[Rfam]
A member of the RNA family "Ma3 gene ribosomal frameshift signal" from Theropithecus gelada, 62 nucleotides long. The literature on the family includes a 2006 paper in J Biol Chem by Wills et al., "A functional -1 ribosomal frameshift signal in the human paraneoplastic Ma3 gene".
RNA sequence: GAGAAUGAGGACGGGGCUGGGGAUGCGGGCCAGCCCAAGUCCUCCCAGGGCAAAUAGGCUCC
Numbered sequence: 001g002a003g004a005a006u007g008a009g010g011a012c013g014g015g016g017c018u019g020g021g022g023a024u025g026c027g028g029g030c031c032a033g034c035c036c037a038a039g040u041c042c043u044c045c046c047a048g049g050g051c052a053a054a055u056a057g058g059c060u061c062c
Base pairs, nucleotide, nucleotide: 013043014042015041016040017039018038020036021035022034027061028060029059030058031057
Dot-bracket structure: ............((((((.(((....[[[[[..))).)))))).............]]]]].